The record is a 97-nucleotide part of an RNA from Halarchaeum acidiphilum, which matches "Archaeal large subunit ribosomal RNA" in Rfam. Pairs were carried over by alignment from the consensus structure, which is taken from published work. A reference for the family is Yusupov et al. (2001), "Crystal structure of the ribosome at 5.5 A resolution", Science. NCBI's taxonomy places the organism under Archaea, Halobacteriales, Halobacteriaceae, Halarchaeum, Halarchaeum acidiphilum. The match comes from Rfam's covariance-model search (2828 bits).
[Rfam]
RNA sequence: GACUGGGCAUGAAAGGCCCUCUGGAGAACGAGGCGCGUGCAAGCGCGUAGUAGGAGUCAGAGGGAGCCGAUGUCCGGUCGUACGUUUUGAAAAACGA
Numbered sequence: 001g002a003c004u005g006g007g008c009a010u011g012a013a014a015g016g017c018c019c020u021c022u023g024g025a026g027a028a029c030g031a032g033g034c035g036c037g038u039g040c041a042a043g044c045g046c047g048u049a050g051u052a053g054g055a056g057u058c059a060g061a062g063g064g065a066g067c068c069g070a071u072g073u074c075c076g077g078u079c080g081u082a083c084g085u086u087u088u089g090a091a092a093a094a095c096g097a
Stems, first nucleotide, its partner, number of pairs: 001079010015068002019062006029053001034047005083096003